[Rfam]
The family of this 300-nucleotide sequence from Handroanthus impetiginosus is "Plant signal recognition particle RNA". The source organism's lineage runs through Eukaryota, Viridiplantae, Streptophyta, Bignoniaceae and Handroanthus. Rfam classes the family as a non-coding RNA gene.
RNA sequence: GCCGAGCUCAAUAAAAUGGGCUUGUAAUCCAAGUGGGGGCAUUAAAGUGACUAAACAGGGGUUCACCUAGCCGGUUGGAUCCAUAGGAUGCUAAUUAUUGGCAUGCUCAUUCCAACAAAGUGUGUUAGCUCACACAAUCCGAGCGAAAGCAUGAGCUUUGUGGGCUUUAGAGUGGAGGGCACUGCGUCAAGCUGGUUUCACAGAGCAGCACCUCUCACACUCUUCGGUGAAAGGAUAAUAGGUUGGUGCUUCCCUUGGCCCACCAAACCAGAUGGGUUACCUAAAUGAACAAUCACUUUU
Numbered sequence: 001g002c003c004g005a006g007c008u009c010a011a012u013a014a015a016a017u018g019g020g021c022u023u024g025u026a027a028u029c030c031a032a033g034u035g036g037g038g039g040c041a042u043u044a045a046a047g048u049g050a051c052u053a054a055a056c057a058g059g060g061g062u063u064c065a066c067c068u069a070g071c072c073g074g075u076u077g078g079a080u081c082c083a084u085a086g087g088a089u090g091c092u093a094a095u096u097a098u099u100g101g102c103a104u105g106c107u108c109a110u111u112c113c114a115a116c117a118a119a120g121u122g123u124g125u126u127a128g129c130u131c132a133c134a135c136a137a138u139c140c141g142a143g144c145g146a147a148a149g150c151a152u153g154a155g156c157u158u159u160g161u162g163g164g165c166u167u168u169a170g171a172g173u174g175g176a177g178g179g180c181a182c183u184g185c186g187u188c189a190a191g192c193u194g195g196u197u198u199c200a201c202a203g204a205g206c207a208g209c210a211c212c213u214c215u216c217a218c219a220c221u222c223u224u225c226g227g228u229g230a231a232a233g234g235a236u237a238a239u240a241g242g243u244u245g246g247u248g249c250u251u252c253c254c255u256u257g258g259c260c261c262a263c264c265a266a267a268c269c270a271g272a273u274g275g276g277u278u279a280c281c282u283a284a285a286u287g288a289a290c291a292a293u294c295a296c297u298u299u300u
Stems, first nucleotide, its partner, number of pairs: 001040003004023007028037003044299007052291001056287002060282002063279001065277005071271001073269004077261002080258002083255001086253001088251001090249001092248002098246005104240002107234002110232002113229002116226001118224003122220004127166008136157001138155001140153002143150002167172001174215005186209002192203003